[Rfam]
RNA sequence: GUGUUGCGUGAAUAUUUACAUUAAAUAUAAAUGAUAAGCAAAGUAAAGAGGCUUGCGUAAUUAUGACGCUACUGACAAAGAGACCAUGGUCUUCGUAUCGGAUGAAACGUGAGAUCCCAUUAAUGAAUGGGAUCUAUUUUAUUAUU
Numbered sequence: 001g002u003g004u005u006g007c008g009u010g011a012a013u014a015u016u017u018a019c020a021u022u023a024a025a026u027a028u029a030a031a032u033g034a035u036a037a038g039c040a041a042a043g044u045a046a047a048g049a050g051g052c053u054u055g056c057g058u059a060a061u062u063a064u065g066a067c068g069c070u071a072c073u074g075a076c077a078a079a080g081a082g083a084c085c086a087u088g089g090u091c092u093u094c095g096u097a098u099c100g101g102a103u104g105a106a107a108c109g110u111g112a113g114a115u116c117c118c119a120u121u122a123a124u125g126a127a128u129g130g131g132a133u134c135u136a137u138u139u140u141a142u143u144a145u146u
Base pairs, nucleotide, nucleotide: 002040003039004037005036006035007033008032009031012028013027014026015025016024017023018022041054042053043052055110056109057108058107061105062104063103064102065099066098068096069095080093081092082091083090084089112135113134114133115132116131117130118129119128120127121126

Salmonella enterica sRNA STnc460: a 146-nucleotide RNA from Salmonella enterica. Rfam classes the family as a small RNA. Taxonomically the source falls in Salmonella enterica subsp. enterica serovar Typhimurium (Bacteria, Pseudomonadota, Gammaproteobacteria, Salmonella enterica subsp. enterica). The base pairs follow the family's consensus structure, which was predicted with RNAalifold.